Description:
Bacterial large subunit ribosomal RNA: a 438-nucleotide part of an RNA from Clostridiaceae bacterium 14S0207. Pairs were carried over by alignment from the consensus structure, which is taken from published work.
[Rfam]
RNA sequence: CUCCUCGAAAUAGCUUUAGGGCUAGCGUCAGGCAAAUGAGUAGCGGAGGUAGAGCACUGAAUGAGCUAGGGGGCUUCACCGCUUACCGAACUCUAUCAAACUCCGAAUGCCGUUUACUUUUACCCUGGCAGUCAGACUGCGAAUGAUAAGAUCCGUAGUCAAAAGGGAAAGAGCCCAGACCAUCAGCUAAGGUCCCAAAGUAUAAGUUAAGUGGUAAAGGAUGUGGGAUUUCUAAGACAACUAGGAUGUUGGCUCAGAAGCAGCCAUUCAUUUAAAGAGUGCGUAAUAGCUCACUAGUCAAGAGAUCCUGCGCCGAAAAUGUUCGGGGCUAAAACUUAUCACCGAAGCUAUGGAUGUACGUAAGUACAUGGUAGAGGAGCUUCCUGUAUGGGCAGAAGUCGUACCGAAAGGAGCGGUGGACUGUACAGGAGUGAGAAU
Numbered sequence: 001c002u003c004c005u006c007g008a009a010a011u012a013g014c015u016u017u018a019g020g021g022c023u024a025g026c027g028u029c030a031g032g033c034a035a036a037u038g039a040g041u042a043g044c045g046g047a048g049g050u051a052g053a054g055c056a057c058u059g060a061a062u063g064a065g066c067u068a069g070g071g072g073g074c075u076u077c078a079c080c081g082c083u084u085a086c087c088g089a090a091c092u093c094u095a096u097c098a099a100a101c102u103c104c105g106a107a108u109g110c111c112g113u114u115u116a117c118u119u120u121u122a123c124c125c126u127g128g129c130a131g132u133c134a135g136a137c138u139g140c141g142a143a144u145g146a147u148a149a150g151a152u153c154c155g156u157a158g159u160c161a162a163a164a165g166g167g168a169a170a171g172a173g174c175c176c177a178g179a180c181c182a183u184c185a186g187c188u189a190a191g192g193u194c195c196c197a198a199a200g201u202a203u204a205a206g207u208u209a210a211g212u213g214g215u216a217a218a219g220g221a222u223g224u225g226g227g228a229u230u231u232c233u234a235a236g237a238c239a240a241c242u243a244g245g246a247u248g249u250u251g252g253c254u255c256a257g258a259a260g261c262a263g264c265c266a267u268u269c270a271u272u273u274a275a276a277g278a279g280u281g282c283g284u285a286a287u288a289g290c291u292c293a294c295u296a297g298u299c300a301a302g303a304g305a306u307c308c309u310g311c312g313c314c315g316a317a318a319a320u321g322u323u324c325g326g327g328g329c330u331a332a333a334a335c336u337u338a339u340c341a342c343c344g345a346a347g348c349u350a351u352g353g354a355u356g357u358a359c360g361u362a363a364g365u366a367c368a369u370g371g372u373a374g375a376g377g378a379g380c381u382u383c384c385u386g387u388a389u390g391g392g393c394a395g396a397a398g399u400c401g402u403a404c405c406g407a408a409a410g411g412a413g414c415g416g417u418g419g420a421c422u423g424u425a426c427a428g429g430a431g432u433g434a435g436a437a438u
Base pairs, nucleotide, nucleotide: 001379002378003377004376005375006374011024012023013022014021015020026131027129028128029127030126031125032124037122038119039118040117041116042115043113044112045111046110052104053102054101058098059097060096063093064092065091069087070086071084072083073082074081135160136159137158138157139156140155141154143152144151165176166175167174180353181352182351183350185349186348187347191343192342193341200340202339203338204337205336206335207334219314220313223311224310225309226308227307228306229305230304231303232302240298241297242296243295244294246271247270248269251265252264253263272276277292281290282289354369355368356367357366358365359364380433382430383429384428385427386426387425388424389423390422391421398417399416400415401414402413404411405410